This 77-nucleotide RNA from Papaver nudicaule belongs to the Rfam family "small nucleolar RNA snoR117". Taxonomically the source falls in Papaver (Eukaryota, Euphyllophyta, Spermatophyta, Mesangiospermae). By type it is a C/D-box small nucleolar RNA. It scores 55 bits against the family's covariance model.
RNA sequence: AGCCAAUGAUGUUAAAUAUUGUUCGUACCAUCUGAGAUCAACUCGUUGACGAGUCUUUAAACAAAUUUCUGAGGCUA
Number, nucleotide and partner (000 for none) at each position: 001a076002g075003c074004c073005a000006a000007u000008g000009a000010u000011g000012u000013u000014a000015a000016a000017u000018a000019u000020u000021g000022u000023u000024c000025g000026u000027a000028c000029c000030a000031u000032c000033u000034g000035a000036g000037a000038u000039c000040a000041a000042c000043u000044c000045g000046u000047u000048g000049a000050c000051g000052a000053g000054u000055c000056u000057u000058u000059a000060a000061a000062c000063a000064a000065a000066u000067u000068u000069c000070u000071g000072a000073g004074g003075c002076u001077a000